RNA sequence: AAAAGAUUAUACAACUGGCGGAAAGCAUGGAAUUAACCAUGGGGGAGUAUAAUCUAUUUAAAAAUCGCCCGCCUGGAUAAUGAAU
Number, nucleotide and partner (000 for none) at each position: 001a000002a000003a000004a055005g054006a053007u052008u051009a050010u049011a048012c047013a000014a000015c044016u043017g073018g072019c071020g070021g069022a000023a000024a000025g000026c000027a040028u039029g038030g037031a000032a000033u000034u000035a000036a000037c030038c029039a028040u027041g000042g000043g016044g015045g000046a000047g012048u011049a010050u009051a008052a007053u006054c005055u004056a000057u000058u000059u000060a000061a000062a000063a000064a078065u077066c076067g000068c000069c021070c020071g019072c018073c017074u000075g000076g066077a065078u064079a000080a000081u000082g000083a000084a000085u000

Rfam assigns this 85-nucleotide RNA sequence from Orenia metallireducens to the family "ZMP/ZTP riboswitch aptamer (pfl RNA motif)". Gene Ontology terms of the family: regulation of purine nucleotide biosynthetic process and one-carbon metabolic process. The source organism's lineage runs through Bacteria, Bacillati, Halanaerobiales, Halobacteroidaceae and Orenia.